[Rfam]
RNA sequence: UUGCCAACAGGGAGUAUUACCUGUUGGCAAAUUAAGUAGCAUGUAGCG
Dot-bracket structure: (((((((((((........)))))))))))..................

A member of the RNA family "ssNA-helicase RNA", 48 nucleotides long. The sequence is in the family's curated seed alignment. Pairs were carried over by alignment from the consensus structure, which is taken from published work.